[Rfam]
The family of this 132-nucleotide sequence from Effusibacillus dendaii is "Molybdenum/Tungsten riboswitch aptamer (Moco RNA motif)". A reference for the family is Regulski et al. (2008), "in molybdenum cofactor and tungsten cofactor metabolism", Mol Microbiol.
RNA sequence: UUGGAACCGCAUCUCCGAAUCUGCCGUCCUGCCACAGAAGCUUCUGUUUUUGUAACGGAUUGCAGAUCGAUAGGGAUACAGGGGAAACGCUGUGUCCUCCCACCUUUGGAAAGGAGAUUAAAACAAUGGAAA
Numbered sequence: 001u002u003g004g005a006a007c008c009g010c011a012u013c014u015c016c017g018a019a020u021c022u023g024c025c026g027u028c029c030u031g032c033c034a035c036a037g038a039a040g041c042u043u044c045u046g047u048u049u050u051u052g053u054a055a056c057g058g059a060u061u062g063c064a065g066a067u068c069g070a071u072a073g074g075g076a077u078a079c080a081g082g083g084g085a086a087a088c089g090c091u092g093u094g095u096c097c098u099c100c101c102a103c104c105u106u107u108g109g110a111a112a113g114g115a116g117a118u119u120a121a122a123a124c125a126a127u128g129g130a131a132a
Stems, first nucleotide, its partner, number of pairs: 011118006019067006026060004034053008073098009083088001099109002
Taxonomically the source falls in Effusibacillus (Bacteria, Bacilli, Caryophanales, Alicyclobacillaceae).